[Rfam]
Nucleotides: 054
Base pairs, nucleotide, nucleotide: 013043014041015040016039020036021035022034023033024032025031
Number, partner (000 for none) and nucleotide at each position: 001000a002000a003000a004000c005000g006000u007000a008000a009000c010000u011000g012000a013043u014041g015040u016039a017000a018000g019000u020036c021035g022034c023033u024032u025031u026000g027000g028000g029000u030000a031025a032024g033023a034022g035021c036020g037000u038000c039016u040015g041014c042000u043013a044000a045000a046000u047000g048000a049000c050000a051000a052000u053000a054000a